Rfam assigns this 80-nucleotide RNA from Hermetia illucens to the family "drz-agam-1 ribozyme". Pairs were carried over by alignment from the consensus structure, which is taken from published work. The family has 7 seed sequences and 10,507 matches in Rfam 15.1.

RNA sequence: UUACUACUAAUCCCUAUCUCCACCUCCACGUGGUGAUCGCUGGAAGUUCUUUCUUUAUGAAAAACUACAAACGGAGAAGG
Numbered sequence: 001u002u003a004c005u006a007c008u009a010a011u012c013c014c015u016a017u018c019u020c021c022a023c024c025u026c027c028a029c030g031u032g033g034u035g036a037u038c039g040c041u042g043g044a045a046g047u048u049c050u051u052u053c054u055u056u057a058u059g060a061a062a063a064a065c066u067a068c069a070a071a072c073g074g075a076g077a078a079g080g
Stems, first nucleotide, its partner, number of pairs: 013080003017076001019074002022034003045066004050061002053059001
Dot-bracket structure: ............(((.(.((.(((.......)))..........((((.((.(.....))).))))......)).).)))